[Rfam]
RNA: Group II catalytic intron D1-D4-5
RNA sequence: UACUACUGAUUAAUCAAAACUCGGAAUGAAAGCGGUCAUGUUGAGCUGAAACGGGUUAUCUGAUCCUCCUACAUGCAUAUAAUGGUAGUAGUCAGAAUGUGUAUGAAGCUAGGUGAAGUCGGCUGAAAUGAACCUAAGUUGCUUAUAUAGAAUAUGGUUCAUGAUAGGCCGGGAUGCUACAAA
Number, nucleotide and partner (000 for none) at each position: 001u000002a000003c000004u000005a000006c000007u000008g000009a000010u000011u000012a000013a000014u000015c000016a000017a000018a057019a056020c055021u054022c053023g052024g000025a000026a000027u000028g000029a000030a000031a047032g046033c045034g000035g000036u000037c000038a000039u000040g000041u000042u000043g000044a000045g033046c032047u031048g000049a000050a000051a000052c023053g022054g021055g020056u019057u018058a175059u174060c173061u172062g000063a000064u000065c000066c000067u000068c113069c112070u111071a110072c105073a104074u103075g102076c101077a100078u099079a098080u097081a000082a000083u094084g093085g092086u000087a000088g000089u000090a000091g000092u085093c084094a083095g000096a000097a080098u079099g078100u077101g076102u075103a074104u073105g072106a000107a000108g000109c000110u071111a070112g069113g068114u000115g000116a000117a000118g000119u000120c171121g170122g169123c168124u167125g000126a000127a000128a162129u161130g160131a159132a158133c157134c150135u149136a148137a000138g000139u000140u000141g000142c000143u000144u000145a000146u000147a000148u136149a135150g134151a000152a000153u000154a000155u000156g000157g133158u132159u131160c130161a129162u128163g000164a000165u000166a000167g124168g123169c122170c121171g120172g061173g060174a059175u058176g000177c000178u000179a000180c000181a000182a000183a000